[Rfam]
RNA sequence: AAUGCUAUGAUGAGAAAAACACCUUUUGGUGUCAUUGGGCAGUGGGUAAUUCCGUGAGCCUUAUUCUAAAAACGACUUCUCUUUCCUCUGAGCAUU
Numbered sequence: 001a002a003u004g005c006u007a008u009g010a011u012g013a014g015a016a017a018a019a020c021a022c023c024u025u026u027u028g029g030u031g032u033c034a035u036u037g038g039g040c041a042g043u044g045g046g047u048a049a050u051u052c053c054g055u056g057a058g059c060c061u062u063a064u065u066c067u068a069a070a071a072a073c074g075a076c077u078u079c080u081c082u083u084u085c086c087u088c089u090g091a092g093c094a095u096u
Stems, first nucleotide, its partner, number of pairs: 001096005